[Rfam]
RNA sequence: UACUUAUCAAGAAAGGCGGAGGGAAUGGCCCUAUGAAGCCUUAGCAACCAGCUAUUUGUUAGAAAUGGUGCUAAUUCCAUCCCGGAUGAAUCUGGGAUAGUUAAGUC
Dot-bracket structure: .(((((.(....(((((...(((.[[[[)))......)))))((((.((..((.......))....))))))...(]]]]((((((....))))))..)).))))).
RNA: SAM riboswitch aptamer (S box leader)
Organism: Pedobacter sp. Leaf216